[Rfam]
RNA sequence: GCGGCGCGGUCGUGUCAGGUACUAGGUGACUCUGAGUGGGCCAGUCUCGGAGCCGCCUGGUGCCUCAACACGCCGCCGC
Numbered sequence: 001g002c003g004g005c006g007c008g009g010u011c012g013u014g015u016c017a018g019g020u021a022c023u024a025g026g027u028g029a030c031u032c033u034g035a036g037u038g039g040g041c042c043a044g045u046c047u048c049g050g051a052g053c054c055g056c057c058u059g060g061u062g063c064c065u066c067a068a069c070a071c072g073c074c075g076c077c078g079c
Base pairs, nucleotide, nucleotide: 001079002078003077006076007075009073011072012071013070014069017065018064019063020062021061022060025057026056027055028054030052031051032050033049034048035047037043038042